[Rfam]
RNA sequence: GAUGCACACAAAACCCAAAGAUCAUAAUUAACACCAAUAAUAUGAUCUUGUCUGUUGUGCAAAAAUCAGUCAGCACCUUGUCGCCUUUCAGAUGGCUGCUGUGCCUCUGGAAGUGAAAUCAAGGUUCGACAAGC
Numbered sequence: 001g002a003u004g005c006a007c008a009c010a011a012a013a014c015c016c017a018a019a020g021a022u023c024a025u026a027a028u029u030a031a032c033a034c035c036a037a038u039a040a041u042a043u044g045a046u047c048u049u050g051u052c053u054g055u056u057g058u059g060c061a062a063a064a065a066u067c068a069g070u071c072a073g074c075a076c077c078u079u080g081u082c083g084c085c086u087u088u089c090a091g092a093u094g095g096c097u098g099c100u101g102u103g104c105c106u107c108u109g110g111a112a113g114u115g116a117a118a119u120c121a122a123g124g125u126u127c128g129a130c131a132a133g134c
Base pairs, nucleotide, nucleotide: 003061004060005059006058007057008056020047021046022045023044024043025042026041027038028037029036073127075125076124077123078122079121085113086112087111088110089109090108091107092106094105095104096103

A member of the RNA family "Small nucleolar RNA SNORA68" from Megalops atlanticus, 134 nucleotides long. It scores 67 bits against the family's covariance model. Its family is annotated with nucleolus and RNA processing in the Gene Ontology. A reference for the family is Ganot et al. (1997), "The family of box ACA small nucleolar RNAs is defined by an evolutionarily conserved secondary structure and ubiquitous sequence elements essential for RNA accumulation", Genes Dev. By type it is an H/ACA-box small nucleolar RNA. Rfam describes the family as follows. U68 is a member of the H/ACA class of small nucleolar RNAs (snoRNAs) which act as guides in the the modification of uridines to pseudouridines.